[Rfam]
Source information
Shown here is a 132-nucleotide RNA from Bacillus sp. OK048, a member of the family "FMN riboswitch aptamer (RFN element)".
RNA sequence: AUCUAUCUUCGGGGCAGGGUGAAAUUCCCGAUCGGCGGUAUUGAGAGUUAUCUCUCUAAGCCCGCGAGCCUUAUGGCAGGAUUUGGUGCGAUUCCAAAGCCGACAGUAUAGUCUGGAUGGGAGAAGAUGGAG
Numbered sequence: 001a002u003c004u005a006u007c008u009u010c011g012g013g014g015c016a017g018g019g020u021g022a023a024a025u026u027c028c029c030g031a032u033c034g035g036c037g038g039u040a041u042u043g044a045g046a047g048u049u050a051u052c053u054c055u056c057u058a059a060g061c062c063c064g065c066g067a068g069c070c071u072u073a074u075g076g077c078a079g080g081a082u083u084u085g086g087u088g089c090g091a092u093u094c095c096a097a098a099g100c101c102g103a104c105a106g107u108a109u110a111g112u113c114u115g116g117a118u119g120g121g122a123g124a125a126g127a128u129g130g131a132g
Stems, first nucleotide, its partner, number of pairs: 003130008017029003031112002033102002035065004060100002070076001082098005104115003
The match comes from Rfam's covariance-model search (120 bits).
Gene Ontology term of the family: FMN binding.
The organism belongs to Bacillus, within Bacteria.